[Rfam]
Shown here is a 240-nucleotide sequence from Streptomyces sp. ICC1, a member of the family "Streptomyces sRNA 4677". The pairing is the family consensus, mapped onto this sequence. Rfam describes the family as follows. Located in the intergenic region between anti-sigma factor SCO4677 gene and a putative regulatory protein gene SCO4676. scr4677 expression requires the SCO4677 activity and scr4677 sRNA itself seem to affect the levels of the SCO4676-associated transcripts. The organism belongs to Streptomyces, within Bacteria. The match comes from Rfam's covariance-model search (94 bits). The family has 12 seed sequences and 563 matches in Rfam 15.1. A reference for the family is Hindra et al. (2014), "Complex intra-operonic dynamics mediated by a small RNA in Streptomyces coelicolor", PLoS One. It is annotated as a small RNA.
RNA sequence: GGACCCGGUAACCCACGAUCUUUCUUUUGCUUCGCAGUACCGGAGAGAAAACACCUGCCAAACCCCUCCUACCUCCCGCGGCGGCCGGGUCACCCACACGAGUGAUGGGCCCGAACGGGGGUGGAUUUGCAGGGGGUUGGCUGGCAUAUGCUCUGGCCGACCACUUGAAAAUGAGACGGCCCCCGCCGGGACGGCAAUCCCGGACGAGGGCCUGACCAACAAGGAAGCACAACCUUCCCC
Numbered sequence: 001g002g003a004c005c006c007g008g009u010a011a012c013c014c015a016c017g018a019u020c021u022u023u024c025u026u027u028u029g030c031u032u033c034g035c036a037g038u039a040c041c042g043g044a045g046a047g048a049a050a051a052c053a054c055c056u057g058c059c060a061a062a063c064c065c066c067u068c069c070u071a072c073c074u075c076c077c078g079c080g081g082c083g084g085c086c087g088g089g090u091c092a093c094c095c096a097c098a099c100g101a102g103u104g105a106u107g108g109g110c111c112c113g114a115a116c117g118g119g120g121g122u123g124g125a126u127u128u129g130c131a132g133g134g135g136g137u138u139g140g141c142u143g144g145c146a147u148a149u150g151c152u153c154u155g156g157c158c159g160a161c162c163a164c165u166u167g168a169a170a171a172u173g174a175g176a177c178g179g180c181c182c183c184c185g186c187c188g189g190g191a192c193g194g195c196a197a198u199c200c201c202g203g204a205c206g207a208g209g210g211c212c213u214g215a216c217c218a219a220c221a222a223g224g225a226a227g228c229a230c231a232a233c234c235u236u237c238c239c240c
Stems, first nucleotide, its partner, number of pairs: 007220001009218001016078002090105004095100001120158002123153002178212005184206002188201004223238005